[Rfam]
Nucleotides: 103
Base pairs, nucleotide, nucleotide: 002102003101004100005099006098007097008096013042016041017040018039022032023031024030026079028077029076043071044070045069046068048067049066050063052062053061075095080092081091082090083089
Number, partner (000 for none) and nucleotide at each position: 001000a002102u003101c004100u005099u006098a007097u008096c009000a010000a011000g012000a013042g014000c015000a016041g017040g018039u019000g020000g021000a022032g023031g024030g025000a026079c027000u028077a029076g030024c031023c032022c033000u034000a035000u036000g037000a038000a039018a040017c041016c042013c043071g044070g045069c046068a047000a048067c049066c050063g051000a052062c053061u054000u055000u056000u057000u058000a059000c060000a061053a062052g063050c064000a065000c066049g067048g068046u069045g070044c071043u072000a073000a074000u075095u076029c077028u078000u079026g080092c081091a082090g083089c084000a085000a086000a087000u088000c089083g090082c091081u092080g093000a094000u095075a096008g097007a098006u099005a100004a101003g102002a103000g